[Rfam]
RNA sequence: UUUUAAGUAUAAAUAUGUCCCAUGCUAUAUUUGAGAUAUACUUAUACUGAAA
Number, nucleotide and partner (000 for none) at each position: 001u000002u000003u000004u000005a000006a048007g047008u046009a045010u044011a043012a042013a000014u040015a039016u038017g000018u036019c035020c000021c033022a031023u000024g000025c000026u000027a000028u000029a000030u000031u022032u000033g021034a000035g019036a018037u000038a016039u015040a014041c000042u012043u011044a010045u009046a008047c007048u006049g000050a000051a000052a000